[Rfam]
RNA: Lysine riboswitch aptamer
RNA sequence: UUGUGAGGUAGAGGCGCGGUAUUUAACAGUCUUAAGUGGAGGCAGAGAAGCCUAUGAAGCUUUUGAGAAGGAACUACCGCCGAAGUGAAUAAUAUUUCUCAGUAUUAUUUGCUGGGUCUGCAGUUAAGAACUGCAGGACUGUCUUAGUAAAUUACCCUAGUUUACUAAGUUGCGCUAUCUCAUUU
Number, nucleotide and partner (000 for none) at each position: 001u000002u000003g000004u000005g000006a180007g179008g178009u177010a176011g175012a000013g000014g000015c000016g080017c079018g078019g077020u076021a075022u000023u073024u072025a000026a000027c000028a000029g000030u000031c000032u065033u000034a062035a061036g060037u059038g000039g000040a000041g000042g000043c000044a000045g000046a000047g000048a000049a000050g000051c000052c000053u000054a000055u000056g000057a000058a000059g037060c036061u035062u034063u000064u000065g032066a000067g000068a000069a000070g000071g000072a024073a023074c000075u021076a020077c019078c018079g017080c016081c000082g000083a000084a113085g112086u111087g110088a109089a108090u107091a106092a105093u104094a103095u102096u000097u000098c000099u000100c000101a000102g095103u094104a093105u092106u091107a090108u089109u088110u087111g086112c085113u084114g140115g139116g000117u137118c136119u135120g134121c133122a132123g131124u130125u000126a000127a000128g000129a000130a124131c123132u122133g121134c120135a119136g118137g117138a000139c115140u114141g000142u000143c169144u168145u167146a166147g165148u164149a163150a162151a161152u000153u000154a000155c000156c000157c000158u000159a000160g000161u151162u150163u149164a148165c147166u146167a145168a144169g143170u000171u000172g000173c000174g000175c011176u010177a009178u008179c007180u006181c000182a000183u000184u000185u000